Bacterial RNase P class A: a 430-nucleotide RNA sequence from Pseudanabaena cinerea.
[Rfam]
RNA sequence: AAGAGUAGGCGUGCAGUUGCGGGUAAUGAGCCUAUAGCUGAUUACCUGAGGAAAGUCCGGGCUUCCAUGGAGAUCAGACUGCUGGAUAACGCCCAGUGCGAGCGAUCGCGAGGAUAGUGCCACAGAAAAAUACCGCCAUUUAUAGAAAUAUCGCGAAGCGAUAUUUCUAUAAAUGGUAAGGGUGCAAAGGUGUGUUAAGAGCGCACCAGCAGGGUCGAGAGGCUCUGGCUCGGUAAACCCCAGUCGGAAGCAAGGCGAGAGAAUAGGGAUAUGACGAUCUUCCUUGAAUCCUAUAUUCGUUGCUUGAGGCGAUCGCGUGUCAAGUGUGUGCCGCAAGAGGUAUCUGGCAACAGGUAUCCCAGAUAGAUAACUGCUAAAAAUGUUGAUAAAACCUUUGAAACAGAACCCGGCUUAUGUCUUGCUCUUCUUA
Numbered sequence: 001a002a003g004a005g006u007a008g009g010c011g012u013g014c015a016g017u018u019g020c021g022g023g024u025a026a027u028g029a030g031c032c033u034a035u036a037g038c039u040g041a042u043u044a045c046c047u048g049a050g051g052a053a054a055g056u057c058c059g060g061g062c063u064u065c066c067a068u069g070g071a072g073a074u075c076a077g078a079c080u081g082c083u084g085g086a087u088a089a090c091g092c093c094c095a096g097u098g099c100g101a102g103c104g105a106u107c108g109c110g111a112g113g114a115u116a117g118u119g120c121c122a123c124a125g126a127a128a129a130a131u132a133c134c135g136c137c138a139u140u141u142a143u144a145g146a147a148a149u150a151u152c153g154c155g156a157a158g159c160g161a162u163a164u165u166u167c168u169a170u171a172a173a174u175g176g177u178a179a180g181g182g183u184g185c186a187a188a189g190g191u192g193u194g195u196u197a198a199g200a201g202c203g204c205a206c207c208a209g210c211a212g213g214g215u216c217g218a219g220a221g222g223c224u225c226u227g228g229c230u231c232g233g234u235a236a237a238c239c240c241c242a243g244u245c246g247g248a249a250g251c252a253a254g255g256c257g258a259g260a261g262a263a264u265a266g267g268g269a270u271a272u273g274a275c276g277a278u279c280u281u282c283c284u285u286g287a288a289u290c291c292u293a294u295a296u297u298c299g300u301u302g303c304u305u306g307a308g309g310c311g312a313u314c315g316c317g318u319g320u321c322a323a324g325u326g327u328g329u330g331c332c333g334c335a336a337g338a339g340g341u342a343u344c345u346g347g348c349a350a351c352a353g354g355u356a357u358c359c360c361a362g363a364u365a366g367a368u369a370a371c372u373g374c375u376a377a378a379a380a381u382g383u384u385g386a387u388a389a390a391a392c393c394u395u396u397g398a399a400a401c402a403g404a405a406c407c408c409g410g411c412u413u414a415u416g417u418c419u420u421g422c423u424c425u426u427c428u429u430a
Stems, first nucleotide, its partner, number of pairs: 001426009011415001013374006020048008053413003057410005062250004077245005082096004097111001098109004112240002117238002119234003133181002135177019189207006209229001210227007254332004264323001266321002269318001275315005339358008
About the family: Ribonuclease P (RNase P) is a ubiquitous endoribonuclease, found in archaea, bacteria and eukarya as well as chloroplasts and mitochondria.
It scores 251 bits against the family's covariance model.
It is annotated as a ribozyme.